The record is an 80-nucleotide RNA sequence from Medicago truncatula, which matches "MIR5269 microRNA precursor family" in Rfam. It scores 74 bits against the family's covariance model. The source organism's lineage runs through Eukaryota, Spermatophyta, Magnoliopsida, Fabaceae and Medicago.

[Rfam]
RNA sequence: UUGGGCAAAAUCAAUGUGGAUCCCACACUUUGGAAAUGAGUCCCACAUAAAAUGGUGGGAUCCACAUUGAUUUUGCCUAG
Numbered sequence: 001u002u003g004g005g006c007a008a009a010a011u012c013a014a015u016g017u018g019g020a021u022c023c024c025a026c027a028c029u030u031u032g033g034a035a036a037u038g039a040g041u042c043c044c045a046c047a048u049a050a051a052a053u054g055g056u057g058g059g060a061u062c063c064a065c066a067u068u069g070a071u072u073u074u075g076c077c078u079a080g
Stems, first nucleotide, its partner, number of pairs: 001080018023058003026054002029051004